[Rfam]
RNA sequence: UCGUCCUGGCCUAUGCUUUCUCUGCUCGACUGUGCUCAGCUGUAACAGGGGAGUCUGGCAGGACACACAGCAACCUCCUCUCAGUUUAGGAGGGCUGUCCUGAGUAUAGGGCUGCCCUUAAAGGCACGAGAGGACAAU
Numbered sequence: 001u002c003g004u005c006c007u008g009g010c011c012u013a014u015g016c017u018u019u020c021u022c023u024g025c026u027c028g029a030c031u032g033u034g035c036u037c038a039g040c041u042g043u044a045a046c047a048g049g050g051g052a053g054u055c056u057g058g059c060a061g062g063a064c065a066c067a068c069a070g071c072a073a074c075c076u077c078c079u080c081u082c083a084g085u086u087u088a089g090g091a092g093g094g095c096u097g098u099c100c101u102g103a104g105u106a107u108a109g110g111g112c113u114g115c116c117c118u119u120a121a122a123g124g125c126a127c128g129a130g131a132g133g134a135c136a137a138u
Base pairs, nucleotide, nucleotide: 003064004063005062006061007060008059010058011057024054025053026052030048031047032046033045077133078132079131080130081129082128084125085124086123087122090119091118092117093116094115095114097112098111099110100109101108102107
RNA: Small Cajal body specific RNA 11
Organism: Myotis myotis